This 73-nucleotide RNA from Pelusios castaneus belongs to the Rfam family "Mammalian CPEB3 ribozyme".

RNA sequence: UUUUGACAUGGGGGUCAUAGUAGAAGCAUUCACGUCGUGGGCGGUCAGAUUUUCUGAAUCUGAGAAACCUGCU
Numbered sequence: 001u002u003u004u005g006a007c008a009u010g011g012g013g014g015u016c017a018u019a020g021u022a023g024a025a026g027c028a029u030u031c032a033c034g035u036c037g038u039g040g041g042c043g044g045u046c047a048g049a050u051u052u053u054c055u056g057a058a059u060c061u062g063a064g065a066a067a068c069c070u071g072c073u
Stems, first nucleotide, its partner, number of pairs: 011042001015040002019073005026038002046062007
For this family Rfam cites "A genomewide search for ribozymes reveals an HDV-like sequence in the human CPEB3 gene" (Salehi-Ashtiani et al., Science, 2006).